[Rfam]
RNA sequence: UUUCUCCGAUUUGCGGAAGAGGCUGAAAAACUCGGAUAACAUGUGUUGUCAUCAGCUUCGUCUCUUGUUCCUACGAGAUGGGAGUUAAAUAACGACACGAGAUUC
Dot-bracket structure: .........................................(((((((.....((((((.((((..........))))..))))))......)))))))......

Notes:
The family of this 105-nucleotide RNA from Brachypodium distachyon is "Small nucleolar RNA snoR97". Rfam classes the family as an H/ACA-box small nucleolar RNA. A reference for the family is Marker et al. (2002), "Experimental RNomics: identification of 140 candidates for small non-messenger RNAs in the plant Arabidopsis thaliana", Curr Biol. Its family is annotated with nucleolus and RNA processing in the Gene Ontology. A search with the family's covariance model found it, with a score of 86 bits.